[Rfam]
This 49-nucleotide RNA sequence belongs to the Rfam family "chrB-b RNA". The base pairs follow the family's consensus structure, which is taken from published work.

RNA sequence: CGGGGAUAGGGCAGAACUCCCCGUUAGACGGUCUCCGUCCAAGUUCUGC
Numbered sequence: 001c002g003g004g005g006a007u008a009g010g011g012c013a014g015a016a017c018u019c020c021c022c023g024u025u026a027g028a029c030g031g032u033c034u035c036c037g038u039c040c041a042a043g044u045u046c047u048g049c
Stems, first nucleotide, its partner, number of pairs: 001023006011049005027039005
By type it is a cis-regulatory element.